[Rfam]
RNA sequence: GAGCACUUGGUACUAACCGAGCCAUCGGUGUCCCGGCCUCCUGCAGGGCUGGGCCUCACCUGUGAUUGCUGGGUCUGCAAAGUGCAACAGCAAAACAAGCCAUGCAGUGUUUAAGCUCAGUGUGUGAAGGAAGACACUGGGUUAUAGCUCAGAGGCACAGAA
Number, nucleotide and partner (000 for none) at each position: 001g000002a000003g085004c084005a083006c082007u081008u080009g000010g000011u000012a000013c000014u000015a000016a074017c073018c072019g000020a070021g069022c068023c000024a066025u065026c064027g000028g057029u000030g055031u000032c000033c053034c051035g050036g049037c048038c047039u046040c000041c000042u000043g000044c000045a000046g039047g038048g037049c036050u035051g034052g000053g033054c000055c030056u000057c028058a000059c000060c000061u000062g000063u000064g026065a025066u024067u000068g022069c021070u020071g000072g018073g017074u016075c000076u000077g000078c000079a000080a008081a007082g006083u005084g004085c003086a000087a000088c000089a000090g000091c000092a000093a000094a000095a000096c000097a000098a000099g156100c155101c154102a000103u000104g000105c000106a000107g000108u000109g000110u000111u000112u000113a000114a000115g000116c000117u000118c000119a000120g135121u134122g000123u132124g000125u130126g000127a000128a000129g000130g125131a000132a123133g000134a121135c120136a000137c152138u151139g150140g149141g148142u147143u000144a000145u000146a000147g142148c141149u140150c139151a138152g137153a000154g101155g100156c099157a000158c000159a000160g000161a000162a000